Record summary
Rfam assigns this 95-nucleotide RNA sequence from Pelagibacterales bacterium SAG-MED27 to the family "Glycine riboswitch aptamer". A reference for the family is Babina et al. (2017), "In Vivo Behavior of the Tandem Glycine Riboswitch in Bacillus subtilis", MBio. Lineage of the source: Bacteria > Pseudomonadati > Pseudomonadota > Alphaproteobacteria > Candidatus Pelagibacterales.
RNA sequence: AAUUUCAAAUCGGGAGAGACUAUUGAUAAUUUAGCGCCGAAGGAGCAACCACCCCGGAAACUCUCAGGCAAAAUUUAGAGACUAGAAUUGAAAGA
Numbered sequence: 001a002a003u004u005u006c007a008a009a010u011c012g013g014g015a016g017a018g019a020c021u022a023u024u025g026a027u028a029a030u031u032u033a034g035c036g037c038c039g040a041a042g043g044a045g046c047a048a049c050c051a052c053c054c055c056g057g058a059a060a061c062u063c064u065c066a067g068g069c070a071a072a073a074u075u076u077a078g079a080g081a082c083u084a085g086a087a088u089u090g091a092a093a094g095a
Stems, first nucleotide, its partner, number of pairs: 006090003010086002012083002020034003036069003039065002043063003049057002
A search with the family's covariance model found it, with a score of 49 bits.